Shown here is a 191-nucleotide RNA from Streptococcus pasteurianus, a member of the family "Glycine riboswitch aptamer". Rfam links the family to the GO term glycine biosynthetic process. The organism belongs to Streptococcus pasteurianus, within Bacteria.
[Rfam]
RNA sequence: GGACGGACUUCUGGAGAGACCUUGUUAUCAAAUGCUUUGAUGACAGCUAGAAUUUCCACUAGAGUCAGUAGUGUUUUUAAGGACUUUGUAUUACCUACUGAUUGCUAAUUGGGUUAUCUAGAUUAGGCGCCGAAGGGGCAAGGUUGACUUUGUCAACUCAAACUCUCAGGCAAAAGGACAGAAGAUAAGAA
Numbered sequence: 001g002g003a004c005g006g007a008c009u010u011c012u013g014g015a016g017a018g019a020c021c022u023u024g025u026u027a028u029c030a031a032a033u034g035c036u037u038u039g040a041u042g043a044c045a046g047c048u049a050g051a052a053u054u055u056c057c058a059c060u061a062g063a064g065u066c067a068g069u070a071g072u073g074u075u076u077u078u079a080a081g082g083a084c085u086u087u088g089u090a091u092u093a094c095c096u097a098c099u100g101a102u103u104g105c106u107a108a109u110u111g112g113g114u115u116a117u118c119u120a121g122a123u124u125a126g127g128c129g130c131c132g133a134a135g136g137g138g139c140a141a142g143g144u145u146g147a148c149u150u151u152g153u154c155a156a157c158u159c160a161a162a163c164u165c166u167c168a169g170g171c172a173a174a175a176g177g178a179c180a181g182a183a184g185a186u187a188a189g190a191a
Stems, first nucleotide, its partner, number of pairs: 006186001008184006020127003129171003132167002136165003142158005